RNA sequence: UCCUCCUCGCGUUCACUGCCAGUGCCAUUAUGUAUAAUUAAAGCUCAUAAGGCACGCGGUGAAUGCCAAGAGCG
Numbered sequence: 001u002c003c004u005c006c007u008c009g010c011g012u013u014c015a016c017u018g019c020c021a022g023u024g025c026c027a028u029u030a031u032g033u034a035u036a037a038u039u040a041a042a043g044c045u046c047a048u049a050a051g052g053c054a055c056g057c058g059g060u061g062a063a064u065g066c067c068a069a070g071a072g073c074g
Base pairs, nucleotide, nucleotide: 003072004071005070009066010065011064012063013062014061015060016059018057019056025052026051029049030048031047032046